Bacterial RNase P class A: a 388-nucleotide RNA from a Candidatus Sericytochromatia bacterium. Ribonuclease P (RNase P) is a ubiquitous endoribonuclease, found in archaea, bacteria and eukarya as well as chloroplasts and mitochondria. Its best characterised activity is the generation of mature 5'-ends of tRNAs by cleaving the 5'-leader elements of precursor-tRNAs. Cellular RNase Ps are ribonucleoproteins. RNA from bacterial RNase Ps retains its catalytic activity in the absence of the protein subunit, i.e. it is a ribozyme. Isolated eukaryotic and archaeal RNase P RNA has not been shown to retain its catalytic function, but is still essential for the catalytic activity of the holoenzyme. Although the archaeal and eukaryotic holoenzyme s have a much greater protein content than the bacterial ones, the RNA cores from all the three lineages are homologous -- helices corresponding to P1, P2, P3, P4, and P10/11 are common to all cellular RNase P RNAs. Yet, there is considerable sequence variation, particularly among the eukaryotic RNAs. Identified in Yersinia as Ysr151/RnpB. Pairs were carried over by alignment from the consensus structure, which is taken from published work.

[Rfam]
RNA sequence: GAAGUGGUCCAGGUGAUUGCGCUGCGCCCCUGUCAAGAGGCCAGUGAGGAAAGUCCGGGCUCCACAGGGCAGGAUGCUGGUUAACGGCCAGCGGGGGUGACCCCGGGAAAGUGCCACAGAAAAGAACCGCCUUCAUCACGCAGCCCACAACGCAGCCGAAGGUAAGGGUGCAACGGUGGUGUAAGAGACCACCAGCAAUUGAGCGAUCAAUUGGCUAGGCAAACCCCGUCCGGAGCAAGGCAAACAGAGGCCAUGGCGGCCCGUCUCGUCCUCAGGUAUGCCGCAGGAGGUGUCCGGCAACGGGCAUCCCAGAUAGAUAAUCACCCCGUCUGCGACCGGCUUGCCGGCCACAGACGGACAGAACCCGGCUUAUCGGACCACUUUACAU
Numbered sequence: 001g002a003a004g005u006g007g008u009c010c011a012g013g014u015g016a017u018u019g020c021g022c023u024g025c026g027c028c029c030c031u032g033u034c035a036a037g038a039g040g041c042c043a044g045u046g047a048g049g050a051a052a053g054u055c056c057g058g059g060c061u062c063c064a065c066a067g068g069g070c071a072g073g074a075u076g077c078u079g080g081u082u083a084a085c086g087g088c089c090a091g092c093g094g095g096g097g098u099g100a101c102c103c104c105g106g107g108a109a110a111g112u113g114c115c116a117c118a119g120a121a122a123a124g125a126a127c128c129g130c131c132u133u134c135a136u137c138a139c140g141c142a143g144c145c146c147a148c149a150a151c152g153c154a155g156c157c158g159a160a161g162g163u164a165a166g167g168g169u170g171c172a173a174c175g176g177u178g179g180u181g182u183a184a185g186a187g188a189c190c191a192c193c194a195g196c197a198a199u200u201g202a203g204c205g206a207u208c209a210a211u212u213g214g215c216u217a218g219g220c221a222a223a224c225c226c227c228g229u230c231c232g233g234a235g236c237a238a239g240g241c242a243a244a245c246a247g248a249g250g251c252c253a254u255g256g257c258g259g260c261c262c263g264u265c266u267c268g269u270c271c272u273c274a275g276g277u278a279u280g281c282c283g284c285a286g287g288a289g290g291u292g293u294c295c296g297g298c299a300a301c302g303g304g305c306a307u308c309c310c311a312g313a314u315a316g317a318u319a320a321u322c323a324c325c326c327c328g329u330c331u332g333c334g335a336c337c338g339g340c341u342u343g344c345c346g347g348c349c350a351c352a353g354a355c356g357g358a359c360a361g362a363a364c365c366c367g368g369c370u371u372a373u374c375g376g377a378c379c380a381c382u383u384u385a386c387a388u
Stems, first nucleotide, its partner, number of pairs: 001384010011373001012325007020046005027039001051371003055368005060235004067262004072231005077091005092105005106226002111224002113220003127167002129163006137155001175193006195215001196213007239282004247273004252268001255265003289308008
It scores 280 bits against the family's covariance model. Its family is annotated with tRNA processing, ribonuclease P activity and dimeric ribonuclease P complex in the Gene Ontology.